[Rfam]
RNA sequence: CCAACGGCUCUUUUAAGAGCCACCCAUUUCAUCACAUAAAGAGAUUU
Numbered sequence: 001c002c003a004a005c006g007g008c009u010c011u012u013u014u015a016a017g018a019g020c021c022a023c024c025c026a027u028u029u030c031a032u033c034a035c036a037u038a039a040a041g042a043g044a045u046u047u
Base pairs, nucleotide, nucleotide: 006021007020008019009018010017011016
Histone 3' UTR stem-loop: a 47-nucleotide RNA from Carassius auratus. The base pairs follow the family's consensus structure, which is taken from published work. The family's RNA type in Rfam is cis-regulatory element. Rfam's curators write: The mRNAs of metazoan histone genes lack a poly-A tail. 3' end processing occurs at a site between a highly conserved stem-loop (modelled by this family) and a purine rich region around 20 nts downstream (the histone downstream element, or HDE). The stem-loop is bound by a 31 kDa stem-loop binding protein (SLBP - also termed the histone hairpin binding protein, or HBP). Together with U7 snRNA binding of the HDE, SLBP binding nucleate s the formation of the processing complex. The match comes from Rfam's covariance-model search (40 bits).